[Rfam]
RNA: Bacterial RNase P class A
Organism: Breznakiella homolactica
RNA sequence: GCGAUGAACCGUAUUGCCGCCGUAAAACCACGCCGCUGGCGUGAUUUUUACGGAGGAAAGUCCGGGCUCCGCAGGGCAUGAUGCCGGGUAACCCCCGGGCAGCGGAUCCGUGAGGAUCCGCUGACAGACAGCGCAACAGAAAAUAUACCGCCGGGAAACCGGUAAGGGUGAAAAGGCGGGGUAAGAGCCCGCCGCGGAACCGGCGACGGUUCCGGCACGGCAAACCUCAUCAGGAGCAAAGCCAAGCAGCGGUAUAAACGGCCCGUUUUUGAACCGCGGGUAGGCUGCGUCGAUGCCGCCGGCAACGGCGGCACAAGAUAGAUGGCAAUAUCACCGUAUUCCAUACUUAUGGAAUACGGUGUAACAGAACCCGGCUUACAGGUUCAUCGCUUUU
Numbered sequence: 001g002c003g004a005u006g007a008a009c010c011g012u013a014u015u016g017c018c019g020c021c022g023u024a025a026a027a028c029c030a031c032g033c034c035g036c037u038g039g040c041g042u043g044a045u046u047u048u049u050a051c052g053g054a055g056g057a058a059a060g061u062c063c064g065g066g067c068u069c070c071g072c073a074g075g076g077c078a079u080g081a082u083g084c085c086g087g088g089u090a091a092c093c094c095c096c097g098g099g100c101a102g103c104g105g106a107u108c109c110g111u112g113a114g115g116a117u118c119c120g121c122u123g124a125c126a127g128a129c130a131g132c133g134c135a136a137c138a139g140a141a142a143a144u145a146u147a148c149c150g151c152c153g154g155g156a157a158a159c160c161g162g163u164a165a166g167g168g169u170g171a172a173a174a175g176g177c178g179g180g181g182u183a184a185g186a187g188c189c190c191g192c193c194g195c196g197g198a199a200c201c202g203g204c205g206a207c208g209g210u211u212c213c214g215g216c217a218c219g220g221c222a223a224a225c226c227u228c229a230u231c232a233g234g235a236g237c238a239a240a241g242c243c244a245a246g247c248a249g250c251g252g253u254a255u256a257a258a259c260g261g262c263c264c265g266u267u268u269u270u271g272a273a274c275c276g277c278g279g280g281u282a283g284g285c286u287g288c289g290u291c292g293a294u295g296c297c298g299c300c301g302g303c304a305a306c307g308g309c310g311g312c313a314c315a316a317g318a319u320a321g322a323u324g325g326c327a328a329u330a331u332c333a334c335c336g337u338a339u340u341c342c343a344u345a346c347u348u349a350u351g352g353a354a355u356a357c358g359g360u361g362u363a364a365c366a367g368a369a370c371c372c373g374g375c376u377u378a379c380a381g382g383u384u385c386a387u388c389g390c391u392u393u394u
Stems, first nucleotide, its partner, number of pairs: 001390010011379001012330007020053008058377003062374005067236004074264004079232005084098005099125001100123010126227002131225001133221002148167002150163005175193006194216001195214008240286004249277005256268004294313008